[Rfam]
RNA sequence: AACCAAGGUGAUUCCCUCUCCAGGGGGCCUAAUAGUGCCCCUCUUUAGGAAAGUAGCAACUUGGAAUAAAGUCUGGCAUGCCUCAGCUUUCCAGGGCAGAAGGUCAUGUGCAAUUUCCUUUGCCUGUGUUUGGCUGCCUACAUGU
Numbered sequence: 001a002a003c004c005a006a007g008g009u010g011a012u013u014c015c016c017u018c019u020c021c022a023g024g025g026g027g028c029c030u031a032a033u034a035g036u037g038c039c040c041c042u043c044u045u046u047a048g049g050a051a052a053g054u055a056g057c058a059a060c061u062u063g064g065a066a067u068a069a070a071g072u073c074u075g076g077c078a079u080g081c082c083u084c085a086g087c088u089u090u091c092c093a094g095g096g097c098a099g100a101a102g103g104u105c106a107u108g109u110g111c112a113a114u115u116u117c118c119u120u121u122g123c124c125u126g127u128g129u130u131u132g133g134c135u136g137c138c139u140a141c142a143u144g145u
Stems, first nucleotide, its partner, number of pairs: 003064005009058002019050003023042006076135001079133001084128002093119002096116001098114001

Notes:
Small nucleolar RNA SNORA67: a 145-nucleotide RNA sequence from Phyllostomus discolor. Rfam classes the family as an H/ACA-box small nucleolar RNA. Rfam 15.1 lists 580 matches to the family in 130 species. Lineage of the source: Eukaryota > Chordata > Gnathostomata > Yangochiroptera > Phyllostomus. U67 belongs to the H/ACA class of snoRNAs which are thought to guide the sites of modification of uridines to pseudouridines. The family's consensus secondary structure was predicted with RNAalifold.